[Rfam]
RNA sequence: GGCCUGUUGGUCAAGUGGUCAAGACGUCGCGUUCUCAGCGCGGAAUCCUGAGUUCGAUCCUCAGACAGGCUA
Numbered sequence: 001g002g003c004c005u006g007u008u009g010g011u012c013a014a015g016u017g018g019u020c021a022a023g024a025c026g027u028c029g030c031g032u033u034c035u036c037a038g039c040g041c042g043g044a045a046u047c048c049u050g051a052g053u054u055c056g057a058u059c060c061u062c063a064g065a066c067a068g069g070c071u072a
Stems, first nucleotide, its partner, number of pairs: 001071007010025003027043005048064005

Shown here is a 72-nucleotide RNA sequence from Periweissella fabalis, a member of the family "tRNA". Rfam links the family to the GO term triplet codon-amino acid adaptor activity.